[Rfam]
RNA sequence: GAGGAUCUUCAGGGCAGGGUGAAAUUCCCGAUCGGCGGUAUAGUCCGCGAGCGCUCCGGCGCAGGAUUUGGUGCAAUUCCAAAACCGACAGUAUAGUCUGGAUGGAAGAAGAUUUGA
Numbered sequence: 001g002a003g004g005a006u007c008u009u010c011a012g013g014g015c016a017g018g019g020u021g022a023a024a025u026u027c028c029c030g031a032u033c034g035g036c037g038g039u040a041u042a043g044u045c046c047g048c049g050a051g052c053g054c055u056c057c058g059g060c061g062c063a064g065g066a067u068u069u070g071g072u073g074c075a076a077u078u079c080c081a082a083a084a085c086c087g088a089c090a091g092u093a094u095a096g097u098c099u100g101g102a103u104g105g106a107a108g109a110a111g112a113u114u115u116g117a
Stems, first nucleotide, its partner, number of pairs: 003115008017029003031097002033087002035048004043085002051062003067083005089100003

This 117-nucleotide RNA sequence from Pseudoflavonifractor sp. An184 belongs to the Rfam family "FMN riboswitch aptamer (RFN element)".
The source organism's lineage runs through Bacteria, Bacillota, Clostridia, Eubacteriales and Pseudoflavonifractor.
It scores 113 bits against the family's covariance model.
The family's consensus secondary structure is taken from published work.
Its family is annotated with FMN binding in the Gene Ontology.